The record is a 200-nucleotide RNA sequence from Brachypodium distachyon, which matches "MIR1435 microRNA precursor family" in Rfam. Rfam 15.1 lists 1,765 matches to the family in 31 species.

[Rfam]
RNA sequence: UAGUUUUGUCCUAAGUCAAACUUAUUCAAGUUUGACCAAGCUUACAGGAAAUUCUACCGACAUCUAGAACUCUAAAUUAGUUUUAUUAAAUCUGUCAUUAUAUAUAUAGUCAUACUGGACUCAUUUGAUAUUUUAGAUAUUAGUAUAAUUUUCUAUAAACUUGGUCAAACUUGAAGAAGUUUGACUUAGGACAAACCUAG
Numbered sequence: 001u002a003g004u005u006u007u008g009u010c011c012u013a014a015g016u017c018a019a020a021c022u023u024a025u026u027c028a029a030g031u032u033u034g035a036c037c038a039a040g041c042u043u044a045c046a047g048g049a050a051a052u053u054c055u056a057c058c059g060a061c062a063u064c065u066a067g068a069a070c071u072c073u074a075a076a077u078u079a080g081u082u083u084u085a086u087u088a089a090a091u092c093u094g095u096c097a098u099u100a101u102a103u104a105u106a107u108a109g110u111c112a113u114a115c116u117g118g119a120c121u122c123a124u125u126u127g128a129u130a131u132u133u134u135a136g137a138u139a140u141u142a143g144u145a146u147a148a149u150u151u152u153c154u155a156u157a158a159a160c161u162u163g164g165u166c167a168a169a170c171u172u173g174a175a176g177a178a179g180u181u182u183g184a185c186u187u188a189g190g191a192c193a194a195a196c197c198u199a200g
Stems, first nucleotide, its partner, number of pairs: 005195005011189013025175002031169005046154007055145003059141002062138007071128002074125002
A search with the family's covariance model found it, with a score of 96 bits. Lineage of the source: Eukaryota > Streptophytina > Mesangiospermae > Petrosaviidae > Brachypodium.